[Rfam]
RNA sequence: AUUGCAGGUUUGAGGCCAUAAAAGAAGCACUUGUGGUGUGGCCCUGUCAGAUUCCAAUGAAUCUGUAAAUUCUACU
Numbered sequence: 001a002u003u004g005c006a007g008g009u010u011u012g013a014g015g016c017c018a019u020a021a022a023a024g025a026a027g028c029a030c031u032u033g034u035g036g037u038g039u040g041g042c043c044c045u046g047u048c049a050g051a052u053u054c055c056a057a058u059g060a061a062u063c064u065g066u067a068a069a070u071u072c073u074a075c076u
Base pairs, nucleotide, nucleotide: 012044014043015042016041017040020076023073024072025071026070027039028038029037048065049064050063051062052061053060054059
RNA: Mammalian CPEB3 ribozyme